[Rfam]
RNA sequence: GCGGUAGUGGUGGAAUGGCAGACACGCCAUCUUGAGGGGGUGGUGGGCGUACGCCCGUGGAGGUUCGAGUCCUCUCUACCGCA
Numbered sequence: 001g002c003g004g005u006a007g008u009g010g011u012g013g014a015a016u017g018g019c020a021g022a023c024a025c026g027c028c029a030u031c032u033u034g035a036g037g038g039g040g041u042g043g044u045g046g047g048c049g050u051a052c053g054c055c056c057g058u059g060g061a062g063g064u065u066c067g068a069g070u071c072c073u074c075u076c077u078a079c080c081g082c083a
Base pairs, nucleotide, nucleotide: 001082002081003080004079005078006077007076010025011024012023027043028042029041030040031039059075060074061073062072063071
The record is an 83-nucleotide RNA sequence from a Paenibacillaceae bacterium, which matches "tRNA" in Rfam. The organism belongs to Paenibacillaceae, within Bacteria. The family's consensus secondary structure is taken from published work. The match comes from Rfam's covariance-model search (46 bits). Rfam's curators write: Transfer RNA (tRNA) molecules are approximately 80 nucleotides in length. Their secondary structure includes four short double-helical elements and three loops (D, anti-codon, and T loops).